[Rfam]
Nucleotides: 086
Base pairs, nucleotide, nucleotide: 002086003085004084006034007033008032009031010030015025016024017023018022036050037049038048039047051081052080053079054078058074059073060072061071062070063069064068
Number, partner (000 for none) and nucleotide at each position: 001000u002086c003085g004084c005000a006034u007033c008032c009031g010030c011000c012000a013000a014000u015025c016024g017023g018022u019000c020000c021000a022018g023017c024016c025015g026000u027000g028000u029000c030010g031009c032008g033007g034006g035000a036050g037049g038048u039047u040000a041000c042000u043000a044000u045000u046000a047039a048038a049037c050036c051081a052080a053079c054078u055000a056000a057000u058074g059073c060072a061071c062070u063069u064068u065000g066000a067000a068064g069063a070062a071061g072060u073059g074058c075000g076000g077000a078054g079053g080052u081051u082000u083000u084004g085003c086002g
This 86-nucleotide RNA sequence from Lampropedia puyangensis belongs to the Rfam family "SucA RNA motif".
Lineage of the source: Bacteria > Pseudomonadati > Betaproteobacteria > Burkholderiales > Lampropedia.
For this family Rfam cites "Identification of 22 candidate structured RNAs in bacteria using the CMfinder comparative genomics pipeline" (Weinberg et al., Nucleic Acids Res, 2007).